[Rfam]
RNA sequence: UAAUGAUAAUUGAAAAUGAUUAUCAAUACCAAUUGAAAAACAUUCCCCCCACAUACAAGUUGUUCUUUUGGAUUGGUCAUUUUCAACUAUCCCCUUUUAUAUGCCCGUAAAAGACUAACGUUAAGAAAUGACGUUUCAAUAAAAGCAGUAGACCUUUGACACUUGAGGUCUGCUGUUUUU
Numbered sequence: 001u002a003a004u005g006a007u008a009a010u011u012g013a014a015a016a017u018g019a020u021u022a023u024c025a026a027u028a029c030c031a032a033u034u035g036a037a038a039a040a041c042a043u044u045c046c047c048c049c050c051a052c053a054u055a056c057a058a059g060u061u062g063u064u065c066u067u068u069u070g071g072a073u074u075g076g077u078c079a080u081u082u083u084c085a086a087c088u089a090u091c092c093c094c095u096u097u098u099a100u101a102u103g104c105c106c107g108u109a110a111a112a113g114a115c116u117a118a119c120g121u122u123a124a125g126a127a128a129u130g131a132c133g134u135u136u137c138a139a140u141a142a143a144a145g146c147a148g149u150a151g152a153c154c155u156u157u158g159a160c161a162c163u164u165g166a167g168g169u170c171u172g173c174u175g176u177u178u179u180u
Stems, first nucleotide, its partner, number of pairs: 005091004010086011024075004029071003035065002039063001041062001094113007118134005141180014
Shown here is a 180-nucleotide sequence from Staphylococcus epidermidis, a member of the family "S. aureus tsr25 small RNA". NCBI's taxonomy places the organism under Bacteria, Bacillati, Caryophanales, Staphylococcaceae, Staphylococcus epidermidis. It scores 126 bits against the family's covariance model. Pairs were carried over by alignment from the consensus structure, which was predicted with RNAfold. A reference for the family is Carroll et al. (2016), "Genome-wide Annotation, Identification, and Global Transcriptomic Analysis of Regulatory or Small RNA Gene Expression in Staphylococcus aureus", MBio.